[Rfam]
RNA sequence: UAUAUAUGUCAUUACAAUAUUAAGUAGCGAACCUUGUCAGGCCAGAGAUGGAGCAGCAAUAGCAAUAUCUUUUUAUGUGUGAUGACAUAUAUUAAUGU
Numbered sequence: 001u002a003u004a005u006a007u008g009u010c011a012u013u014a015c016a017a018u019a020u021u022a023a024g025u026a027g028c029g030a031a032c033c034u035u036g037u038c039a040g041g042c043c044a045g046a047g048a049u050g051g052a053g054c055a056g057c058a059a060u061a062g063c064a065a066u067a068u069c070u071u072u073u074u075a076u077g078u079g080u081g082a083u084g085a086c087a088u089a090u091a092u093u094a095a096u097g098u
Stems, first nucleotide, its partner, number of pairs: 004092005009085006015077001017076003022071001024066002027063002034059004042051003
The family of this 98-nucleotide sequence from Ureaplasma parvum is "Bacterial small signal recognition particle RNA". Rfam classes the family as a non-coding RNA gene. Clan: SRP clan. The match comes from Rfam's covariance-model search (59 bits). Rfam's curators write: The signal recognition particle (SRP) is a universally conserved ribonucleoprotein involved in the co-translational targeting of proteins to membranes.